[Rfam]
Rfam assigns this 451-nucleotide part of an RNA from Sulfolobus acidocaldarius to the family "Archaeal large subunit ribosomal RNA". Taxonomically the source falls in Sulfolobus acidocaldarius (Archaea, Thermoproteota, Thermoprotei, Sulfolobus).

RNA sequence: CCCCCCGAAAUGCGUCCUAGCGCAGCCUCCCUAAAGGCAGCUCGCGGGGUAGAGUGACAGAUCGGGGGCUCCAGGCGAAAGCCUGGGGCUUCCGGUCUAACUCCGAACCCACGAGCGCCGAAGAAGGGGGGAGUGGGUCACUCGGCGUAAGGUUGGGUGGCAAAAGGGGAACAACCCAGACCUGGGUUAAGGCCCCAAAGUCCCGGCUAAGUGCCAACGAAAAGGCGUCUCCAGCCUUAGACAGCGGGAAGGUGGGCCCAGCAGCAGCCAUCCUCUAAGGAGUGCGUAACAGCUCACCCGCCGAGGCUGGAGGCCCUAAAGAUUGGUCGGGGCUCAAGCCGGGCGCCGAGACCCAGGAGGGGGUCUCUACUAGAGAUCCUCUGGUAGGGGGGCGCUGUGAUGGGGUAGAAGGUGGGUCGUGAGAUCCACUGGACCCGUCACAGGUGCAGAU
Numbered sequence: 001c002c003c004c005c006c007g008a009a010a011u012g013c014g015u016c017c018u019a020g021c022g023c024a025g026c027c028u029c030c031c032u033a034a035a036g037g038c039a040g041c042u043c044g045c046g047g048g049g050u051a052g053a054g055u056g057a058c059a060g061a062u063c064g065g066g067g068g069c070u071c072c073a074g075g076c077g078a079a080a081g082c083c084u085g086g087g088g089c090u091u092c093c094g095g096u097c098u099a100a101c102u103c104c105g106a107a108c109c110c111a112c113g114a115g116c117g118c119c120g121a122a123g124a125a126g127g128g129g130g131g132a133g134u135g136g137g138u139c140a141c142u143c144g145g146c147g148u149a150a151g152g153u154u155g156g157g158u159g160g161c162a163a164a165a166g167g168g169g170a171a172c173a174a175c176c177c178a179g180a181c182c183u184g185g186g187u188u189a190a191g192g193c194c195c196c197a198a199a200g201u202c203c204c205g206g207c208u209a210a211g212u213g214c215c216a217a218c219g220a221a222a223a224g225g226c227g228u229c230u231c232c233a234g235c236c237u238u239a240g241a242c243a244g245c246g247g248g249a250a251g252g253u254g255g256g257c258c259c260a261g262c263a264g265c266a267g268c269c270a271u272c273c274u275c276u277a278a279g280g281a282g283u284g285c286g287u288a289a290c291a292g293c294u295c296a297c298c299c300g301c302c303g304a305g306g307c308u309g310g311a312g313g314c315c316c317u318a319a320a321g322a323u324u325g326g327u328c329g330g331g332g333c334u335c336a337a338g339c340c341g342g343g344c345g346c347c348g349a350g351a352c353c354c355a356g357g358a359g360g361g362g363g364u365c366u367c368u369a370c371u372a373g374a375g376a377u378c379c380u381c382u383g384g385u386a387g388g389g390g391g392g393c394g395c396u397g398u399g400a401u402g403g404g405g406u407a408g409a410a411g412g413u414g415g416g417u418c419g420u421g422a423g424a425u426c427c428a429c430u431g432g433a434c435c436c437g438u439c440a441c442a443g444g445u446g447c448a449g450a451u
Stems, first nucleotide, its partner, number of pairs: 001392006011024005026133001027131006036119003040116005046110002052104001053102002060097010071086006137161009166177003181357007191347003200344001202343006223317003227314010244301005250274003255269003275279001280295001284293002358382002361379005393446001395443010411430008
Rfam's curators put it in the seed alignment.